[Rfam]
RNA: tRNA
RNA sequence: GGGGGGAUCGUCUAAAUGGUUAAGACACUCGUGCCGAUUUCGUCAAGGCUUCGAGAGAUCCGGGUUCAAAUCCCGGUCACCCCA
Dot-bracket structure: ((((.((..((((.........)))).((((....................))))....(((((.......))))))).)))).